RNA sequence: CUGCCUUCCCAGAUCUGUUCUUUUCAGUUUAAUCUCUGAAACGUGUCUACGGACACAAUCAAGAUUAAUCUUAUUUUUGCACCUAGUUCGGAGGCCGCUGAGCUUGCUCAUGUCUCUCGGGCACCGUGUCGCUGGUAUUGCACUGCCUCCAGCUGACGCGAACCUUU
Numbered sequence: 001c002u003g004c005c006u007u008c009c010c011a012g013a014u015c016u017g018u019u020c021u022u023u024u025c026a027g028u029u030u031a032a033u034c035u036c037u038g039a040a041a042c043g044u045g046u047c048u049a050c051g052g053a054c055a056c057a058a059u060c061a062a063g064a065u066u067a068a069u070c071u072u073a074u075u076u077u078u079g080c081a082c083c084u085a086g087u088u089c090g091g092a093g094g095c096c097g098c099u100g101a102g103c104u105u106g107c108u109c110a111u112g113u114c115u116c117u118c119g120g121g122c123a124c125c126g127u128g129u130c131g132c133u134g135g136u137a138u139u140g141c142a143c144u145g146c147c148u149c150c151a152g153c154u155g156a157c158g159c160g161a162a163c164c165u166u167u
Stems, first nucleotide, its partner, number of pairs: 022041006043056005086122006093115001099110004125160006131153005
Shown here is a 167-nucleotide sequence from Salinomyces thailandicus, a member of the family "U2 spliceosomal RNA". U2 is a small nuclear RNA (snRNA) component of the spliceosome (involved in pre-mRNA splicing). Complementary binding between U2 snRNA (in an area lying towards the 5' end but 3' to hairpin I) and the branchpoint sequence (BPS) of the intron results the bulging out of an unpaired adenosine, on the BPS, which initiates a nucleophilic attack at the intronic 5' splice site, thus starting the first of two transesterification reactions that mediate splicing. A reference for the family is Zwieb (1997), "The uRNA database", Nucleic Acids Res.